[Rfam]
RNA sequence: GGGCCAGCUUAGCCUAGCGGUUACUUCGUGGACCUUUCGAGUAGCUUCCUGCAGUUCGAGUACCGCGGGCGCUGCCUGGCUUUUUG
Numbered sequence: 001g002g003g004c005c006a007g008c009u010u011a012g013c014c015u016a017g018c019g020g021u022u023a024c025u026u027c028g029u030g031g032a033c034c035u036u037u038c039g040a041g042u043a044g045c046u047u048c049c050u051g052c053a054g055u056u057c058g059a060g061u062a063c064c065g066c067g068g069g070c071g072c073u074g075c076c077u078g079g080c081u082u083u084u085u086g
Base pairs, nucleotide, nucleotide: 002081003080004079005078006077007076012070013069014068015067017066018065019064020063025060026059027058028057
RNA: Vault RNA